[Rfam]
RNA: Purine riboswitch aptamer
RNA sequence: ACUAAUGAUAUAGAAGUCUCUCAUAUAAUCCAGGGGAUAUGGCCCAAAGUUUCUACCCGAUAACCGUAAAUUAUCGGACUAUGAGAGAAAGAUGAACGUUA
Numbered sequence: 001a002c003u004a005a006u007g008a009u010a011u012a013g014a015a016g017u018c019u020c021u022c023a024u025a026u027a028a029u030c031c032a033g034g035g036g037a038u039a040u041g042g043c044c045c046a047a048a049g050u051u052u053c054u055a056c057c058c059g060a061u062a063a064c065c066g067u068a069a070a071u072u073a074u075c076g077g078a079c080u081a082u083g084a085g086a087g088a089a090a091g092a093u094g095a096a097c098g099u100u101a
Stems, first nucleotide, its partner, number of pairs: 018087008029048001033045003057077007